[Rfam]
RNA: U11 spliceosomal RNA
Organism: Cicer arietinum
RNA sequence: AAAAUGGGUCAGUUUGCUAAUUUUGGCACGCUCACUCUUUGUCGGUGAGUGCUGUAUGGCUAUCAAGACAUAUGAUUGACAUGAAUUUUAGGGAAUUAUAGGGUCAGCUUGUUAUGCCAGCCCUUUUU
Numbered sequence: 001a002a003a004a005u006g007g008g009u010c011a012g013u014u015u016g017c018u019a020a021u022u023u024u025g026g027c028a029c030g031c032u033c034a035c036u037c038u039u040u041g042u043c044g045g046u047g048a049g050u051g052c053u054g055u056a057u058g059g060c061u062a063u064c065a066a067g068a069c070a071u072a073u074g075a076u077u078g079a080c081a082u083g084a085a086u087u088u089u090a091g092g093g094a095a096u097u098a099u100a101g102g103g104u105c106a107g108c109u110u111g112u113u114a115u116g117c118c119a120g121c122c123c124u125u126u127u128u
Base pairs, nucleotide, nucleotide: 008080009079010078011077012076015028016027017026018025019024029051030050031049032048033047034046035045036044053074054073055072056071057070058069098126100124101123102122103121104120107117108116110114